[Rfam]
RNA sequence: GUUUGAGUGAUGACUUCACAAAUAGUCGGAUACCCCUUCACUCCUUUUGAGUGAGAAAUGUGGUCUGACAAAC
Number, nucleotide and partner (000 for none) at each position: 001g073002u072003u071004u070005g069006a000007g000008u000009g000010a000011u000012g000013a000014c000015u000016u000017c000018a000019c000020a000021a000022a000023u000024a000025g000026u000027c000028g000029g000030a000031u000032a000033c000034c000035c000036c000037u000038u000039c000040a000041c000042u000043c000044c000045u000046u000047u000048u000049g000050a000051g000052u000053g000054a000055g000056a000057a000058a000059u000060g000061u000062g000063g000064u000065c000066u000067g000068a000069c005070a004071a003072a002073c001
Small nucleolar RNA SNORD101: a 73-nucleotide RNA sequence from Coturnix japonica. On this family, see Vitali et al., Nucleic Acids Res 2003: "Identification of 13 novel human modification guide RNAs". Rfam classes the family as a C/D-box small nucleolar RNA. Gene Ontology terms of the family: nucleolus and RNA processing. The organism belongs to Coturnix, within Eukaryota. The base pairs follow the family's consensus structure, which was predicted with PFOLD. A search with the family's covariance model found it, with a score of 73 bits.